RNA sequence: GCUCCCCUUCUGUAAUUCUUGCUACCUGAGUGAGUGUGCUAUCUCAGUGCAGUGCACCUGGGCAAGGGUUCUGAAUGCAAGAGU
Numbered sequence: 001g002c003u004c005c006c007c008u009u010c011u012g013u014a015a016u017u018c019u020u021g022c023u024a025c026c027u028g029a030g031u032g033a034g035u036g037u038g039c040u041a042u043c044u045c046a047g048u049g050c051a052g053u054g055c056a057c058c059u060g061g062g063c064a065a066g067g068g069u070u071c072u073g074a075a076u077g078c079a080a081g082a083g084u
Stems, first nucleotide, its partner, number of pairs: 014070007025062004030057003037051003
RNA: mir-500 microRNA precursor family